[Rfam]
RNA sequence: GCAAACCUUCAGGGCAGGGUGUAAUUCCCGACCGGCGGUAACGCGAAAGCGAAGCCCGCGAGCCAUAAAGGCAGAUCUGGUGAAAUUCCAGAGCCGACAGUAUAGUCUGGAUGGGAGAAGGUAAUA
Numbered sequence: 001g002c003a004a005a006c007c008u009u010c011a012g013g014g015c016a017g018g019g020u021g022u023a024a025u026u027c028c029c030g031a032c033c034g035g036c037g038g039u040a041a042c043g044c045g046a047a048a049g050c051g052a053a054g055c056c057c058g059c060g061a062g063c064c065a066u067a068a069a070g071g072c073a074g075a076u077c078u079g080g081u082g083a084a085a086u087u088c089c090a091g092a093g094c095c096g097a098c099a100g101u102a103u104a105g106u107c108u109g110g111a112u113g114g115g116a117g118a119a120g121g122u123a124a125u126a
Stems, first nucleotide, its partner, number of pairs: 005122006017029003031106002033096002035059004054094002062072003076092005098109003
Rfam assigns this 126-nucleotide RNA from Anaerobranca californiensis to the family "FMN riboswitch aptamer (RFN element)". A search with the family's covariance model found it, with a score of 125 bits. Pairs were carried over by alignment from the consensus structure, which is taken from published work.